[Rfam]
Nucleotides: 153
Stems, first nucleotide, its partner, number of pairs: 007093003011089005019081001022078004030068002033065001034061003038057007128153006135146004
Number, partner (000 for none) and nucleotide at each position: 001000a002000u003000c004000u005000u006000a007093a008092a009091u010000a011089g012088a013087a014086a015085g016000a017000g018000g019081g020000u021000u022078u023077g024076c025075a026000u027000a028000u029000g030068g031067a032000c033065u034061u035060c036059a037000c038057u039056g040055g041054u042053g043052u044051u045000a046000u047000u048000a049000c050000a051044a052043g053042c054041a055040u056039u057038a058000u059036u060035g061034a062000u063000u064000u065033a066000a067031u068030c069000a070000a071000g072000a073000c074000u075025u076024g077023c078022a079000u080000u081019c082000a083000g084000a085015c086014u087013u088012u089011c090000g091009g092008u093007u094000a095000a096000g097000u098000u099000u100000u101000u102000u103000g104000u105000u106000u107000c108000a109000a110000c111000g112000c113000a114000a115000u116000a117000a118000a119000a120000a121000a122000a123000c124000a125000g126000a127000g128153g129152a130151a131150a132149u133148a134000u135146u136145c137144a138143a139000c140000a141000a142000u143138u144137u145136g146135a147000u148133u149132g150131u151130u152129u153128c
Record summary:
Rfam assigns this 153-nucleotide RNA sequence from Mammaliicoccus vitulinus to the family "psm_mec locus RNA". It is one of the family's seed sequences. Rfam links the family to the GO term regulation of translation, ncRNA-mediated. The source organism's lineage runs through Bacteria, Bacillati, Bacillota, Caryophanales and Mammaliicoccus. Rfam's curators write: psm_mec locus strain dependent gene (immune evasion factor protein A) regulatory RNA. By type it is a small RNA.